RNA sequence: AAAAUGUUUUUUGAUAUAAAACACUUAUGUCAAUAAAACAAUUUGAACCCCUU
Number, nucleotide and partner (000 for none) at each position: 001a000002a000003a000004a000005u000006g000007u000008u000009u000010u000011u033012u032013g031014a030015u029016a028017u027018a000019a000020a000021a000022c000023a000024c000025u000026u000027a017028u016029g015030u014031c013032a012033a011034u000035a000036a000037a000038a000039c000040a000041a000042u000043u000044u000045g000046a000047a000048c000049c000050c000051c000052u000053u000